[Rfam]
The family of this 117-nucleotide RNA from Geodermatophilus marinus is "Actinobacteria sRNA Ms_IGR-7".
RNA sequence: AGCGGAUGCCCUUCUGCGCGGACCGGUCAAGCCUUAGACAAGCCCGAUCGUUCCUCGUCAGAGGGGCAUUCGUGCUUUCCGACGCGCAGUCACCCGCCUAUUCGACGGUGGAUCGAG
Numbered sequence: 001a002g003c004g005g006a007u008g009c010c011c012u013u014c015u016g017c018g019c020g021g022a023c024c025g026g027u028c029a030a031g032c033c034u035u036a037g038a039c040a041a042g043c044c045c046g047a048u049c050g051u052u053c054c055u056c057g058u059c060a061g062a063g064g065g066g067c068a069u070u071c072g073u074g075c076u077u078u079c080c081g082a083c084g085c086g087c088a089g090u091c092a093c094c095c096g097c098c099u100a101u102u103c104g105a106c107g108g109u110g111g112a113u114c115g116a117g
Stems, first nucleotide, its partner, number of pairs: 002073010012062002015060002018056001020054003024050004031043002098115001100113005

NCBI's taxonomy places the organism under Bacteria, Actinomycetes, Geodermatophilales, Geodermatophilaceae, Geodermatophilus.